[Rfam]
RNA sequence: AACUCGAGUAGAAGCGGUCAGUGCCUAAAGAUGGCAUGGGACAUUGCUCUGGCG
Numbered sequence: 001a002a003c004u005c006g007a008g009u010a011g012a013a014g015c016g017g018u019c020a021g022u023g024c025c026u027a028a029a030g031a032u033g034g035c036a037u038g039g040g041a042c043a044u045u046g047c048u049c050u051g052g053c054g
Base pairs, nucleotide, nucleotide: 006049007048008047009046010045015039018041019040021037022036023035024034025033